[Rfam]
The record is a 659-nucleotide RNA sequence from Cetraspora pellucida, which matches "Group I catalytic intron" in Rfam. Rfam describes the family as follows. Group I catalytic introns are large self-splicing ribozymes. For this family Rfam cites "Self-splicing of group I introns" (Cech, Annu Rev Biochem, 1990).

RNA sequence: UGAAUACCAUUAUACAUUAAUGGUGUAUCCACCGAAAUGGAAAACUCAUACACUGCUCUGCCUGCAACACUAUCAAAUUGCCGGAAGUUCCUAAAGCCCAAGGUACUGCGAAGAACGUGAAAACGAUCUUGCAGCAGGUAGGUUAAUAGCCUACCGGAUGGUAAUAAGCCAAGGGAUUUAAGGUAAAAUUUCUUCUGUACACCAAUUGAAUUAAUAUCCUGUCGGGUAUCCCUGGUGUGACGCCCGGGGCAAUGACAACGUAGGACGUAUUUUCGAAAGGUGUAUAGUGUACCUUACCUCUAUAGAAAAUGCAUAGGUUGUUAUGGUCGCCUAGAAUCAUAGAGGACACUUGCCUUGCGGAAUGCAUAACUUCCACAUUGGUAGCGCACAAGAAGAAAUGGAUCUUAUGGGGUGUAUCGGCGAAGGUGUCAUUGUUUAAGAAUAGAAGCCUACUGGUCUUAAUUGAUUGGGAACAACAAUGAUAUACACCCUCCGUUAAAAGACGGAAUGGAUAAUCGGCAGCCAAGCCGCCUGGGUGAGACUCUUAGAGUGCUCGACGGUGCAGUUCACAGACUAAACGGUAGUGGGCGAACGGAUUCAGACGGUUGUCUGUUCUCCGGUUGCUUAAGAUAUAGUCGAUAGAUAUUCGAAAGGAUAGU
Number, nucleotide and partner (000 for none) at each position: 001u000002g028003a000004a026005u025006a024007c023008c022009a021010u020011u019012a018013u000014a000015c000016a000017u000018u012019a011020a010021u009022g008023g007024u006025g005026u004027a000028u002029c000030c000031a000032c000033c000034g047035a046036a000037a000038u000039g000040g000041a000042a000043a000044a000045c000046u035047c034048a000049u000050a000051c000052a000053c000054u000055g000056c000057u000058c000059u000060g000061c000062c000063u000064g000065c000066a000067a000068c586069a585070c584071u583072a582073u000074c580075a000076a000077a000078u000079u521080g520081c519082c518083g517084g516085a000086a000087g000088u000089u512090c511091c510092u000093a000094a000095a000096g000097c000098c000099c000100a000101a000102g000103g000104u000105a000106c000107u000108g000109c000110g000111a000112a000113g000114a000115a000116c000117g000118u000119g000120a000121a000122a000123a000124c000125g000126a000127u000128c000129u000130u000131g000132c000133a000134g000135c000136a000137g000138g000139u000140a000141g000142g000143u000144u000145a000146a000147u000148a000149g000150c000151c000152u000153a000154c000155c000156g000157g000158a000159u000160g000161g000162u000163a000164a000165u000166a000167a000168g000169c000170c000171a000172a000173g000174g000175g000176a000177u000178u000179u000180a000181a000182g000183g000184u000185a000186a000187a000188a000189u000190u000191u000192c000193u000194u000195c000196u000197g000198u000199a000200c000201a000202c000203c000204a000205a000206u000207u000208g000209a000210a000211u000212u000213a000214a000215u000216a000217u000218c000219c000220u000221g000222u000223c000224g000225g000226g000227u000228a000229u000230c000231c000232c000233u000234g000235g000236u000237g000238u000239g000240a000241c000242g000243c000244c000245c000246g000247g000248g000249g000250c000251a000252a000253u000254g000255a000256c000257a000258a000259c000260g000261u000262a000263g000264g000265a000266c000267g000268u000269a000270u000271u000272u000273u000274c000275g000276a000277a000278a000279g000280g000281u000282g000283u000284a000285u000286a000287g000288u000289g000290u000291a000292c000293c000294u000295u000296a000297c000298c000299u000300c000301u000302a000303u000304a000305g000306a000307a000308a000309a000310u000311g000312c000313a000314u000315a000316g000317g000318u000319u000320g000321u000322u000323a000324u000325g000326g000327u000328c000329g000330c000331c000332u000333a000334g000335a000336a000337u000338c000339a000340u000341a000342g000343a000344g000345g000346a000347c000348a000349c000350u000351u000352g000353c000354c000355u000356u000357g000358c000359g000360g000361a000362a000363u000364g000365c000366a000367u000368a000369a000370c000371u000372u000373c000374c000375a000376c000377a000378u000379u000380g000381g000382u000383a000384g000385c000386g000387c000388a000389c000390a000391a000392g000393a000394a000395g000396a000397a000398a000399u000400g000401g000402a000403u000404c000405u000406u000407a000408u000409g000410g000411g000412g000413u000414g000415u000416a000417u000418c000419g000420g000421c000422g000423a000424a000425g000426g000427u000428g000429u000430c000431a000432u000433u000434g000435u000436u000437u000438a000439a000440g000441a000442a000443u000444a000445g000446a000447a000448g000449c000450c000451u000452a000453c000454u000455g000456g000457u000458c000459u000460u000461a000462a000463u000464u000465g000466a000467u000468u000469g000470g000471g000472a000473a000474c000475a000476a000477c000478a000479a000480u000481g000482a000483u000484a000485u000486a000487c000488a000489c000490c000491c000492u000493c000494c000495g000496u000497u000498a000499a000500a000501a000502g000503a000504c000505g000506g000507a000508a000509u000510g091511g090512a089513u000514a000515a000516u084517c083518g082519g081520c080521a079522g566523c565524c000525a000526a000527g561528c560529c559530g558531c000532c000533u000534g000535g554536g553537u552538g551539a000540g000541a000542c000543u000544c000545u000546u000547a000548g000549a000550g000551u538552g537553c536554u535555c000556g000557a000558c530559g529560g528561u527562g000563c000564a000565g523566u522567u000568c000569a000570c638571a000572g637573a636574c635575u634576a633577a000578a000579c000580g074581g000582u072583a071584g070585u069586g068587g000588g624589c623590g622591a621592a000593c619594g618595g617596a616597u000598u000599c000600a000601g000602a000603c000604g000605g000606u000607u000608g000609u000610c000611u000612g000613u000614u000615c000616u596617c595618c594619g593620g000621u591622u590623g589624c588625u000626u000627a000628a000629g000630a000631u000632a000633u576634a575635g574636u573637c572638g570639a000640u000641a000642g000643a000644u657645a656646u655647u654648c653649g000650a000651a000652a000653g648654g647655a646656u645657a644658g000659u000